[Rfam]
RNA sequence: CCAAAGGCCCUUUUCAGGGCCACCCACAUUUUCCGAGAAAGAGCU
Numbered sequence: 001c002c003a004a005a006g007g008c009c010c011u012u013u014u015c016a017g018g019g020c021c022a023c024c025c026a027c028a029u030u031u032u033c034c035g036a037g038a039a040a041g042a043g044c045u
Base pairs, nucleotide, nucleotide: 006021007020008019009018010017011016
Histone 3' UTR stem-loop: a 45-nucleotide RNA sequence from Microcebus murinus. The mRNAs of metazoan histone genes lack a poly-A tail. 3' end processing occurs at a site between a highly conserved stem-loop (modelled by this family) and a purine rich region around 20 nts downstream (the histone downstream element, or HDE). The stem-loop is bound by a 31 kDa stem-loop binding protein (SLBP - also termed the histone hairpin binding protein, or HBP). Together with U7 snRNA binding of the HDE, SLBP binding nucleate s the formation of the processing complex. The histone 3' UTR stem-loop is also involved in nucleocytoplasmic transport of the mRNA, and in stability regulation and translation efficiency in the cytoplasm. By type it is a cis-regulatory element.